[Rfam]
A member of the RNA family "Small nucleolar RNA Z103" from Cuscuta campestris, 101 nucleotides long. Gene Ontology terms of the family: nucleolus and RNA processing. The literature on the family includes a 2003 paper in Nucleic Acids Res by Chen et al., "The high diversity of snoRNAs in plants: identification and comparative study of 120 snoRNA genes from Oryza sativa". Taxonomically the source falls in Cuscuta sect. Cleistogrammica (Eukaryota, Tracheophyta, Mesangiospermae, eudicotyledons).
RNA sequence: AUGGACGUGAUGAUCAUUUCCCCAUAUGAUCGAAGGUGAAAUUACUGUGCGCUCUUUGUGUUUUCUCCUCGGAGAAACUCCAAGCCAGAUUUCUGAUCCAU
Numbered sequence: 001a002u003g004g005a006c007g008u009g010a011u012g013a014u015c016a017u018u019u020c021c022c023c024a025u026a027u028g029a030u031c032g033a034a035g036g037u038g039a040a041a042u043u044a045c046u047g048u049g050c051g052c053u054c055u056u057u058g059u060g061u062u063u064u065c066u067c068c069u070c071g072g073a074g075a076a077a078c079u080c081c082a083a084g085c086c087a088g089a090u091u092u093c094u095g096a097u098c099c100a101u
Stems, first nucleotide, its partner, number of pairs: 001101005